The record is a 74-nucleotide RNA from Xenopus tropicalis, which matches "Small nucleolar RNA SNORD24" in Rfam.
The literature on the family includes a 1995 paper in Nucleic Acids Res by Qu et al., "U24, a novel intron-encoded small nucleolar RNA with two 12 nt long, phylogenetically conserved complementarities to 28S rRNA".
Gene Ontology terms of the family: nucleolus and RNA processing.
RNA sequence: UGCAAGUGAUGUGAUGAAAUAUUUGCUAUCUGAGCCACAGUGCUGACACUCUACCCACCAAGAUCGCUGAUGCA
Numbered sequence: 001u002g003c004a005a006g007u008g009a010u011g012u013g014a015u016g017a018a019a020u021a022u023u024u025g026c027u028a029u030c031u032g033a034g035c036c037a038c039a040g041u042g043c044u045g046a047c048a049c050u051c052u053a054c055c056c057a058c059c060a061a062g063a064u065c066g067c068u069g070a071u072g073c074a
Stems, first nucleotide, its partner, number of pairs: 001074004